[Rfam]
RNA sequence: GUUGUGAAAUAAUCAAAUUCAGAGCCUUUAAGAAGACUCAAAGUACAAUUUUUGCAAACCCUAGCUUUUCCAAGUCAGGGUA
Numbered sequence: 001g002u003u004g005u006g007a008a009a010u011a012a013u014c015a016a017a018u019u020c021a022g023a024g025c026c027u028u029u030a031a032g033a034a035g036a037c038u039c040a041a042a043g044u045a046c047a048a049u050u051u052u053u054g055c056a057a058a059c060c061c062u063a064g065c066u067u068u069u070c071c072a073a074g075u076c077a078g079g080g081u082a
Stems, first nucleotide, its partner, number of pairs: 022039003026035003058081005065074003